[Rfam]
RNA sequence: CAUAGUAAGCACCCAUGUGUUGAAAACACAUAUUGAAAUGGCACAAUCGACCUGCCGCCCAACGAAUGUGAGGGGCGAUACCAAAC
Number, nucleotide and partner (000 for none) at each position: 001c000002a000003u000004a000005g000006u000007a000008a000009g044010c000011a000012c041013c040014c000015a031016u030017g029018u028019g027020u026021u000022g000023a000024a000025a000026a020027c019028a018029c017030a016031u015032a000033u000034u000035g000036a000037a000038a000039u000040g013041g012042c000043a000044c009045a000046a000047u000048c000049g000050a000051c000052c000053u000054g076055c075056c074057g000058c073059c072060c000061a000062a069063c068064g000065a000066a000067u000068g063069u062070g000071a000072g059073g058074g056075g055076c054077g000078a000079u000080a000081c000082c000083a000084a000085a000086c000